[Rfam]
RNA sequence: GGGAGAUCGGUCAGGACCUGGAAACGAGGGACUCUGUGAGGAAGAGGACGCCAAAGGAUGGUCGACCGCUAACAAAGACAAAAGGAAUUAAACUGAUCAAUGGAACCUGCAGCCAGGAUCGAAGGUAAGUGAGGCGUCCGAAAUGGGACAAGAAUUAAGCCAGCAUCAAAUAUAUGUGAAUUAAAGAGGCUUUAAAGAUACGAGGAGUAAAGGUUAAAGGUAAUGACUUGUUUAAAUUUUUUGAUUUUGUAAAAGAUACUUGCCCUU
Dot-bracket structure: ......((.((............))..)).....(.(.......).).......................................(((...(((.....((.......))..)).)......))).......(..((((...)))).)......((((((..........................))).)))......((((((((..((((((.......))))))......))))))))........((.(.(....).).))
The family of this 267-nucleotide RNA from Macaca fascicularis is "Mason-Pfizer monkey virus packaging signal".
Taxonomically the source falls in Macaca (Eukaryota, Eumetazoa, Chordata, Cercopithecidae).
The family's RNA type in Rfam is cis-regulatory element.
On this family, see Mustafa et al., Virus Res 2004: "Mutational analysis of the predicted secondary RNA structure of the Mason-Pfizer monkey virus packaging signal".
Pairs were carried over by alignment from the consensus structure, which was predicted with PFOLD.
A search with the family's covariance model found it, with a score of 168 bits.
Rfam 15.1 lists 2,921 matches to the family in 53 species.